[Rfam]
RNA sequence: CAAAUUAAAUGGACCCAAGCCUAUAUAAUGUCUUAAUCUGGUUGACAGUUUCUACCCAACGCCGUAAAUGUUGGACUAUAGGAAUUUUUAACUUACAU
Numbered sequence: 001c002a003a004a005u006u007a008a009a010u011g012g013a014c015c016c017a018a019g020c021c022u023a024u025a026u027a028a029u030g031u032c033u034u035a036a037u038c039u040g041g042u043u044g045a046c047a048g049u050u051u052c053u054a055c056c057c058a059a060c061g062c063c064g065u066a067a068a069u070g071u072u073g074g075a076c077u078a079u080a081g082g083a084a085u086u087u088u089u090a091a092c093u094u095a096c097a098u
Base pairs, nucleotide, nucleotide: 020082021081022080023079024078025077029047030046031045032044056074057073058072059071060070061069
RNA: Purine riboswitch aptamer
Organism: Pediococcus acidilactici